Rfam assigns this 84-nucleotide sequence from Caenorhabditis latens to the family "SmY spliceosomal RNA".
RNA sequence: CAUCGAACUACAAUACCUUCCAGGCCUUUCCAAAGACCUCGAGUACAAUUUUUGAGAAACUCUGUCUAUUAUUUAGGCAGGGCG
Numbered sequence: 001c002a003u004c005g006a007a008c009u010a011c012a013a014u015a016c017c018u019u020c021c022a023g024g025c026c027u028u029u030c031c032a033a034a035g036a037c038c039u040c041g042a043g044u045a046c047a048a049u050u051u052u053u054g055a056g057a058a059a060c061u062c063u064g065u066c067u068a069u070u071a072u073u074u075a076g077g078c079a080g081g082g083c084g
Base pairs, nucleotide, nucleotide: 022039023038024037026035027034028033060082061081062080063079064078065077066076067075

The family's consensus secondary structure is taken from published work. NCBI's taxonomy places the organism under Eukaryota, Bilateria, Protostomia, Rhabditoidea, Caenorhabditis. The family has 61 seed sequences and 408 matches in Rfam 15.1.